[Rfam]
RNA sequence: GAUCGUAGAGGCAGAGUGGAAUAAGCGUUUAGGACGCGGGUUCGAUUCCCGCCGCCUCCACCAUGAAAGCAUGACCGCCGUCGUUCGCAGACGGCAAAGGUGCUUUCCUGAUGGGGGCGACAUGGGUUCGACUAGGCGUGGUAAAGGCUAGGCUGCGAUUAGGCUGAGCUACGGCCUUAACAGUGCAAAUUCACAAAUGCCAACGACAACGUUGACAUGGGUGCGGUUCGCCUCGCGGCGUAA
Number, nucleotide and partner (000 for none) at each position: 001g160002a159003u158004c157005g156006u000007a000008g000009a000010g000011g000012c000013a000014g000015a149016g148017u147018g000019g000020a000021a000022u000023a000024a000025g000026c138027g137028u136029u000030u134031a133032g132033g000034a000035c000036g052037c051038g050039g049040g048041u000042u000043c000044g000045a000046u000047u000048c040049c039050c038051g037052c036053c119054g118055c117056c116057u115058c114059c113060a000061c000062c000063a000064u000065g000066a000067a000068a000069g000070c000071a000072u000073g000074a000075c000076c000077g000078c000079c000080g000081u000082c000083g000084u000085u000086c000087g000088c000089a000090g000091a000092c000093g000094g000095c000096a000097a000098a000099g000100g000101u000102g000103c000104u000105u000106u000107c000108c000109u000110g000111a000112u000113g059114g058115g057116g056117g055118c054119g053120a000121c000122a000123u000124g000125g000126g000127u000128u000129c000130g000131a000132c032133u031134a030135g000136g028137c027138g026139u000140g000141g000142u000143a000144a000145a000146g000147g017148c016149u015150a000151g000152g000153c000154u000155g000156c005157g004158a003159u002160u001161a177162g176163g175164c174165u000166g000167a000168g000169c000170u000171a000172c000173g000174g164175c163176c162177u161178u000179a000180a000181c000182a000183g000184u000185g000186c000187a000188a000189a000190u000191u000192c000193a000194c000195a000196a000197a000198u000199g000200c000201c000202a000203a000204c000205g000206a000207c000208a000209a000210c000211g000212u000213u000214g000215a000216c000217a000218u000219g000220g000221g000222u000223g000224c000225g000226g000227u000228u000229c000230g000231c000232c000233u000234c000235g000236c000237g000238g000239c000240g000241u000242a000243a000
permuted transfer-messenger RNA: a 243-nucleotide RNA sequence from Microvirga brassicacearum. Taxonomically the source falls in Microvirga (Bacteria, Pseudomonadati, Pseudomonadota, Hyphomicrobiales). From the family's description: Bacterial tmRNA, also known as 10Sa RNA or SsrA, is named for its dual tRNA and mRNA-like properties. Its role is to liberate the mRNA from a stalled ribosome. The match comes from Rfam's covariance-model search (142 bits). By type it is a non-coding RNA gene.